[Rfam]
RNA sequence: ACAUGAAAUGGAAGAAACGAGGACCUAAGAGCAGUUGGCAUGGGAACUUGAUGGACGGCUAAAUCUCUCCCACUUCUUGGUCAAUGUAGGAAGAUUCUUUGGUUGAGUUUUCUUGAUGCCUCCCAUGCCUAUUUUUCUUUGGUGUUCCUUUCUUUUCCAUUUGGGU
Numbered sequence: 001a002c003a004u005g006a007a008a009u010g011g012a013a014g015a016a017a018c019g020a021g022g023a024c025c026u027a028a029g030a031g032c033a034g035u036u037g038g039c040a041u042g043g044g045a046a047c048u049u050g051a052u053g054g055a056c057g058g059c060u061a062a063a064u065c066u067c068u069c070c071c072a073c074u075u076c077u078u079g080g081u082c083a084a085u086g087u088a089g090g091a092a093g094a095u096u097c098u099u100u101g102g103u104u105g106a107g108u109u110u111u112c113u114u115g116a117u118g119c120c121u122c123c124c125a126u127g128c129c130u131a132u133u134u135u136u137c138u139u140u141g142g143u144g145u146u147c148c149u150u151u152c153u154u155u156u157c158c159a160u161u162u163g164g165g166u
Stems, first nucleotide, its partner, number of pairs: 010156004015151003019147003024142002027139005033133001035131001037129009047118001049116001051114001053113003057109003
A member of the RNA family "MIR2118 microRNA precursor family" from Aegilops tauschii, 166 nucleotides long.
The family's consensus secondary structure was predicted with RNAalifold.